Overview: Rfam assigns this 75-nucleotide sequence from Aphanomyces euteiches to the family "tRNA". It scores 68 bits against the family's covariance model. Pairs were carried over by alignment from the consensus structure, which is taken from published work.
RNA sequence: CGGAAAGUAGCAUAGUUUGGUUAAUGUACCUGUUUUGGGAACAGGAGAUCAUGAGUUCGAAUCUCAUCUUUCCGA
Dot-bracket structure: (((((((..((((..........)))).(((((.......))))).....(((((.......)))))))))))).